This 146-nucleotide sequence from Panthera tigris belongs to the Rfam family "U4 spliceosomal RNA".
Rfam classes the family as a spliceosomal small nuclear RNA.
A search with the family's covariance model found it, with a score of 60 bits.
Lineage of the source: Eukaryota > Chordata > Dipnotetrapodomorpha > Tetrapoda > Panthera tigris.
The base pairs follow the family's consensus structure, which is taken from published work.

[Rfam]
RNA sequence: AGCUUUGCGCAGUGGCAGUAUCAUAGCCAAUGAGGUUUAUCUGAGGCGCGAUUAUUGCUAAUAGAUACCCAUUUAUCCUUCAAGAGAUAAGGACUAUUACUGAUGUUUGGUGUUCCCUUGCAAAAAUAUUCUAUGCUUAAAUGAGU
Numbered sequence: 001a002g003c004u005u006u007g008c009g010c011a012g013u014g015g016c017a018g019u020a021u022c023a024u025a026g027c028c029a030a031u032g033a034g035g036u037u038u039a040u041c042u043g044a045g046g047c048g049c050g051a052u053u054a055u056u057g058c059u060a061a062u063a064g065a066u067a068c069c070c071a072u073u074u075a076u077c078c079u080u081c082a083a084g085a086g087a088u089a090a091g092g093a094c095u096a097u098u099a100c101u102g103a104u105g106u107u108u109g110g111u112g113u114u115c116c117c118u119u120g121c122a123a124a125a126a127u128a129u130u131c132u133a134u135g136c137u138u139a140a141a142u143g144a145g146u
Stems, first nucleotide, its partner, number of pairs: 020052003024048001026047003034042002079123002081120004086115002090111001135146004